[Rfam]
RNA sequence: AAUAGGAGAAUGACAAAUCAGAUUUUUCCUCCUGAUUUUCAGCAUUUUGUCUCCUAAAGAAAAUUCAAAUCCAACUAAAAAAGCUGAAAAUAAGGAGGAAAAAUCUGAUUUGUCAUUAUCCUAUU
Numbered sequence: 001a002a003u004a005g006g007a008g009a010a011u012g013a014c015a016a017a018u019c020a021g022a023u024u025u026u027u028c029c030u031c032c033u034g035a036u037u038u039u040c041a042g043c044a045u046u047u048u049g050u051c052u053c054c055u056a057a058a059g060a061a062a063a064u065u066c067a068a069a070u071c072c073a074a075c076u077a078a079a080a081a082a083g084c085u086g087a088a089a090a091u092a093a094g095g096a097g098g099a100a101a102a103a104u105c106u107g108a109u110u111u112g113u114c115a116u117u118a119u120c121c122u123a124u125u
Stems, first nucleotide, its partner, number of pairs: 001125007009117019029097005035091005041085002045081004
Background: The family of this 125-nucleotide sequence from Gossypium laxum is "MIR7504 microRNA precursor family". It scores 120 bits against the family's covariance model. Its family is annotated with RISC complex and miRNA-mediated post-transcriptional gene silencing in the Gene Ontology. NCBI's taxonomy places the organism under Eukaryota, Euphyllophyta, Mesangiospermae, eudicotyledons, Gossypium. The family's consensus secondary structure was predicted with RNAalifold.